[Rfam]
RNA sequence: AGACGUUCUCAGGGCGGGGUGAAACUCCCCACCGGCGGUAGGUGCGCAAGCACAAGCCCGCGAGCGCCUCCGGCCCUUGGCCGGAGGGUCAAGCAGACCCGGUCAGAGUCCGGGGCCGACGGUCAUAGUCCGGAUGAAAGAGAACGCGG
Numbered sequence: 001a002g003a004c005g006u007u008c009u010c011a012g013g014g015c016g017g018g019g020u021g022a023a024a025c026u027c028c029c030c031a032c033c034g035g036c037g038g039u040a041g042g043u044g045c046g047c048a049a050g051c052a053c054a055a056g057c058c059c060g061c062g063a064g065c066g067c068c069u070c071c072g073g074c075c076c077u078u079g080g081c082c083g084g085a086g087g088g089u090c091a092a093g094c095a096g097a098c099c100c101g102g103u104c105a106g107a108g109u110c111c112g113g114g115g116c117c118g119a120c121g122g123u124c125a126u127a128g129u130c131c132g133g134a135u136g137a138a139a140g141a142g143a144a145c146g147c148g149g
Stems, first nucleotide, its partner, number of pairs: 004146007017029003031129002033118002035061004056116002064094002098114005120132003
Annotation: Rfam assigns this 149-nucleotide sequence from Brytella acorum to the family "FMN riboswitch aptamer (RFN element)". It scores 109 bits against the family's covariance model. The family's consensus secondary structure is taken from published work.